[Rfam]
RNA sequence: UAUGUUUUUAUAGCGCCAGAACUACACACGGACGGUACACGUGUAGUUGACGAGGAGGAGUUUAUCGAACAUUCGGCGGAUAGCUCCCGGUUGCGUAUCACAACCGAAAUCUCUUAUACAAACCAUGAGGGCGACCUUGUGAACAAAGAUAAGAGACCUGAUGCUA
Numbered sequence: 001u002a003u004g005u006u007u008u009u010a011u012a013g014c015g016c017c018a019g020a021a022c023u024a025c026a027c028a029c030g031g032a033c034g035g036u037a038c039a040c041g042u043g044u045a046g047u048u049g050a051c052g053a054g055g056a057g058g059a060g061u062u063u064a065u066c067g068a069a070c071a072u073u074c075g076g077c078g079g080a081u082a083g084c085u086c087c088c089g090g091u092u093g094c095g096u097a098u099c100a101c102a103a104c105c106g107a108a109a110u111c112u113c114u115u116a117u118a119c120a121a122a123c124c125a126u127g128a129g130g131g132c133g134a135c136c137u138u139g140u141g142a143a144c145a146a147a148g149a150u151a152a153g154a155g156a157c158c159u160g161a162u163g164c165u166a
Stems, first nucleotide, its partner, number of pairs: 020048008057087005065076004088106006110156007124141007
Overview
This 166-nucleotide RNA from Priestia taiwanensis belongs to the Rfam family "glmS glucosamine-6-phosphate activated ribozyme aptamer". Lineage of the source: Bacteria > Bacillota > Bacilli > Bacillaceae > Priestia. About the family: This entry contains a glucosamine-6-phosphate activated ribozyme that is found in the mRNA for GlmS. GlmS is an enzyme that uses fructose-6-phosphate and glutamine to generate glucosamine-6-phosphate. The ribozyme catalyses self cleavage of the glmS mRNA that is thought to regulate GlmS activity. The base pairs follow the family's consensus structure, which is taken from published work.